[Rfam]
RNA sequence: GGAGGCCGCGCGGGAGAGUUCGCCCGAUGGCUGGUCCAUCUGGCGGCGCCGAAGGAGCAACCGCCCCCGGAAUCUCUCAGGCAACCGGACCGCGCGCGCCUG
Numbered sequence: 001g002g003a004g005g006c007c008g009c010g011c012g013g014g015a016g017a018g019u020u021c022g023c024c025c026g027a028u029g030g031c032u033g034g035u036c037c038a039u040c041u042g043g044c045g046g047c048g049c050c051g052a053a054g055g056a057g058c059a060a061c062c063g064c065c066c067c068c069g070g071a072a073u074c075u076c077u078c079a080g081g082c083a084a085c086c087g088g089a090c091c092g093c094g095c096g097c098g099c100c101u102g
Stems, first nucleotide, its partner, number of pairs: 007096007020046004048082003051078002055076003061069001
RNA: Glycine riboswitch aptamer
Organism: Sphingomonas sabuli